[Rfam]
RNA sequence: CAUGAACGAAUGAAGAGUUAUUCCAAAAUCCUUACUAAAGGGCGGGAUAAAUCUGAUAUGUUCAUA
Numbered sequence: 001c002a003u004g005a006a007c008g009a010a011u012g013a014a015g016a017g018u019u020a021u022u023c024c025a026a027a028a029u030c031c032u033u034a035c036u037a038a039a040g041g042g043c044g045g046g047a048u049a050a051a052u053c054u055g056a057u058a059u060g061u062u063c064a065u066a
Base pairs, nucleotide, nucleotide: 002065003064004063005062006061007060008059014054015053016052018050019049020048021047022046023045024044029042030041031040